[Rfam]
RNA sequence: GUCCCACGUGCGGCGGACCCACGAAAAGCCUCCCAAGGCGACCGCGACAGCCGGCCAUGACGGGUUACGAGGCCCAUCCGGCCGGCUGU
Numbered sequence: 001g002u003c004c005c006a007c008g009u010g011c012g013g014c015g016g017a018c019c020c021a022c023g024a025a026a027a028g029c030c031u032c033c034c035a036a037g038g039c040g041a042c043c044g045c046g047a048c049a050g051c052c053g054g055c056c057a058u059g060a061c062g063g064g065u066u067a068c069g070a071g072g073c074c075c076a077u078c079c080g081g082c083c084g085g086c087u088g089u
Stems, first nucleotide, its partner, number of pairs: 001018004022044002029037001047089010059078002062075004
RNA: Rhizobiales sRNA Atu_Ti1